[Rfam]
RNA sequence: GGCCACCUUCGGGGGGCUGUCAACAUAGGAGAGCGCCGCAAGGGCCUCUUCGUUUGCUAAACGGAAGACAGAAA
Numbered sequence: 001g002g003c004c005a006c007c008u009u010c011g012g013g014g015g016g017c018u019g020u021c022a023a024c025a026u027a028g029g030a031g032a033g034c035g036c037c038g039c040a041a042g043g044g045c046c047u048c049u050u051c052g053u054u055u056g057c058u059a060a061a062c063g064g065a066a067g068a069c070a071g072a073a074a
Stems, first nucleotide, its partner, number of pairs: 001018004006014003028051006
The family of this 74-nucleotide sequence is "L2-Alphaproteobacteria ribosomal protein leader". The literature on the family includes a 2020 paper in BMC Microbiol by Eckert and Weinberg, "Discovery of 20 novel ribosomal leader candidates in bacteria and archaea". Rfam's curators put it in the seed alignment. The base pairs follow the family's consensus structure, which is taken from published work.